[Rfam]
RNA sequence: AUGAGGGUGACCGAGUGUGGGAAGGAAGCGUGGAGCGUAAGUUGCGGGCCGAUGAACAAGAACCGUAUAGAAGGCGCUGCCGAGCAGGGCGAGUGGGCAAAAAGCCACGAAGGUCUCGUGACCAAGGCGAAGUGGCGUAGAUGCGGCGGUUGUGCGACGAAGGAGUGCGUUC
Numbered sequence: 001a002u003g004a005g006g007g008u009g010a011c012c013g014a015g016u017g018u019g020g021g022a023a024g025g026a027a028g029c030g031u032g033g034a035g036c037g038u039a040a041g042u043u044g045c046g047g048g049c050c051g052a053u054g055a056a057c058a059a060g061a062a063c064c065g066u067a068u069a070g071a072a073g074g075c076g077c078u079g080c081c082g083a084g085c086a087g088g089g090c091g092a093g094u095g096g097g098c099a100a101a102a103a104g105c106c107a108c109g110a111a112g113g114u115c116u117c118g119u120g121a122c123c124a125a126g127g128c129g130a131a132g133u134g135g136c137g138u139a140g141a142u143g144c145g146g147c148g149g150u151u152g153u154g155c156g157a158c159g160a161a162g163g164a165g166u167g168c169g170u171u172c
Base pairs, nucleotide, nucleotide: 001016002015005012006011028172030170031169032168036163041158042157043156044155045154046153047151048150049149050148051147063146064145065144066143067142068141074138075137076136078134079133080132084128085127087115088114090112093108094107095106096105